RNA sequence: UUGUCUUUUUCUUUGGUUAUUUAGCUAUAUGAGUGUUAGUUAUGGUUUCAUAAAGCUAGAUUACCAAAGCUAAGCGCAA
Numbered sequence: 001u002u003g004u005c006u007u008u009u010u011c012u013u014u015g016g017u018u019a020u021u022u023a024g025c026u027a028u029a030u031g032a033g034u035g036u037u038a039g040u041u042a043u044g045g046u047u048u049c050a051u052a053a054a055g056c057u058a059g060a061u062u063a064c065c066a067a068a069g070c071u072a073a074g075c076g077c078a079a
Stems, first nucleotide, its partner, number of pairs: 001079004007073002011069007019061008028052006
Overview: This 79-nucleotide sequence from Dracunculus medinensis belongs to the Rfam family "mir-9/mir-79 microRNA precursor family". Lineage of the source: Eukaryota > Ecdysozoa > Rhabditida > Dracunculoidea > Dracunculus. The family has 214 seed sequences and 5,647 matches in Rfam 15.1.